[Rfam]
RNA sequence: GAGCGGGACCGGGCCCCUCUGGCGAUCCAUCGGAUCGUGAUGUCGGACCGCAUCG
Numbered sequence: 001g002a003g004c005g006g007g008a009c010c011g012g013g014c015c016c017c018u019c020u021g022g023c024g025a026u027c028c029a030u031c032g033g034a035u036c037g038u039g040a041u042g043u044c045g046g047a048c049c050g051c052a053u054c055g
Stems, first nucleotide, its partner, number of pairs: 006049002009046004022038007
About this RNA:
terC RNA: a 55-nucleotide RNA from Rhizorhabdus wittichii. Pairs were carried over by alignment from the consensus structure, which is taken from published work. It is annotated as a cis-regulatory element.